RNA sequence: GUGAUGGUAUCUUUAAGAGCUGUACACUUAUCAGGUAAAAGUUUAGUAUUUAUAAAUGUUCUGCUUAGAGCUUUUAAGACUGAGACAGAGAA
Dot-bracket structure: ((((((((.((.....))))))).))).................................((((((((..((....)).))))).)))....